[Rfam]
RNA: mir-31 microRNA precursor family
RNA sequence: GAGGAAAAAGAUGGCAAGAUGUUGGCAUAGCUGUUUGUGUUUUAGGCUCUGCUAUGCCCCCAUGGUGCCAUUUUUUACUUCC
Numbered sequence: 001g002a003g004g005a006a007a008a009a010g011a012u013g014g015c016a017a018g019a020u021g022u023u024g025g026c027a028u029a030g031c032u033g034u035u036u037g038u039g040u041u042u043u044a045g046g047c048u049c050u051g052c053u054a055u056g057c058c059c060c061c062a063u064g065g066u067g068c069c070a071u072u073u074u075u076u077a078c079u080u081c082c
Stems, first nucleotide, its partner, number of pairs: 006076011019063003024058008